Overview: The family of this 79-nucleotide RNA sequence from Orycteropus afer is "Small nucleolar RNA U2-19".
[Rfam]
RNA sequence: GAUCAAUGAUGAAAACAGCCAAAUCUGAGCAUCAGGGACCUUCCAGCCUACCCAGUGCAUGAUCUCUAAAGUCUAGGAA
Numbered sequence: 001g002a003u004c005a006a007u008g009a010u011g012a013a014a015a016c017a018g019c020c021a022a023a024u025c026u027g028a029g030c031a032u033c034a035g036g037g038a039c040c041u042u043c044c045a046g047c048c049u050a051c052c053c054a055g056u057g058c059a060u061g062a063u064c065u066c067u068a069a070a071g072u073c074u075a076g077g078a079a
Base pairs, nucleotide, nucleotide: 029058030057031056032055036049037048039046
Taxonomically the source falls in Orycteropus afer (Eukaryota, Deuterostomia, Tetrapoda, Afrotheria). The match comes from Rfam's covariance-model search (70 bits). Gene Ontology terms of the family: nucleolus and RNA processing.